[Rfam]
RNA sequence: GCGUGGGUCGGCCCGCCGAACUGGACUCGGCGGGCUGGGGGAGACCGCCGCCCCAAUCCCCGCGGGCGGCGAACCGGUCCGGGAGGUGAUGACACCUCCCGGACUGUG
Numbered sequence: 001g002c003g004u005g006g007g008u009c010g011g012c013c014c015g016c017c018g019a020a021c022u023g024g025a026c027u028c029g030g031c032g033g034g035c036u037g038g039g040g041g042a043g044a045c046c047g048c049c050g051c052c053c054c055a056a057u058c059c060c061c062g063c064g065g066g067c068g069g070c071g072a073a074c075c076g077g078u079c080c081g082g083g084a085g086g087u088g089a090u091g092a093c094a095c096c097u098c099c100c101g102g103a104c105u106g107u108g
Base pairs, nucleotide, nucleotide: 001107002106006075007074008073009037010036011035012034013033014032015031016030017029018028046071047070048069049068050067051066052065053064076105077104078103079102080101081100082099083098084097085096086095087094088093
Annotation: Rfam assigns this 108-nucleotide RNA sequence from Streptomyces sp. wa22 to the family "Streptomyces RNA 4115". Pairs were carried over by alignment from the consensus structure. For this family Rfam cites "Deep sequencing-based identification of small non-coding RNAs in Streptomyces coelicolor" (Vockenhuber et al., RNA Biol, 2011). Rfam describes the family as follows. Identified by deep sequencing of transcriptome at the end of exponential growth phase. A search with the family's covariance model found it, with a score of 99 bits. Taxonomically the source falls in Streptomyces (Bacteria, Bacillati, Actinomycetes, Streptomycetaceae).